[Rfam]
A member of the RNA family "Ribosomal protein L10 leader" from Erysipelothrix sp. HDW6C, 117 nucleotides long.

RNA sequence: AUACUGUUAUCAUAUAUACCAAAGACAGCAACCGCCUUCGGGCUUAAUCAGUUGCCGAGGUAAAAGUAUAAAACUUUUAAACCCUCGUCUUUGAUGUGGGUUUAUUUAUUUGGCUAU
Numbered sequence: 001a002u003a004c005u006g007u008u009a010u011c012a013u014a015u016a017u018a019c020c021a022a023a024g025a026c027a028g029c030a031a032c033c034g035c036c037u038u039c040g041g042g043c044u045u046a047a048u049c050a051g052u053u054g055c056c057g058a059g060g061u062a063a064a065a066g067u068a069u070a071a072a073a074c075u076u077u078u079a080a081a082c083c084c085u086c087g088u089c090u091u092u093g094a095u096g097u098g099g100g101u102u103u104a105u106u107u108a109u110u111u112g113g114c115u116a117u
Stems, first nucleotide, its partner, number of pairs: 028055005034043003080102005086096004
Dot-bracket structure: ...........................(((((.(((....))).......)))))........................(((((.((((...)))).)))))...............
The base pairs follow the family's consensus structure, which was predicted with CMfinder. Rfam links the family to the GO term regulation of gene expression.